[Rfam]
RNA sequence: AGACCAAGGGGCCGGGUUGCUUUGAAUGCGUCAGGUUCGAAGCGACCUAGGGGUACAGGGAGUACCUCCGUCCGACGGGCCGGGUCUGGCGAGCG
Dot-bracket structure: (((((....(((((((((.((((((((.......)))))))).))))).(((((((.....))))))).........)))).)))))........

The family of this 95-nucleotide sequence from Pseudomonas indica is "ivy-DE RNA".
The family's consensus secondary structure is taken from published work.
Rfam classes the family as a cis-regulatory element.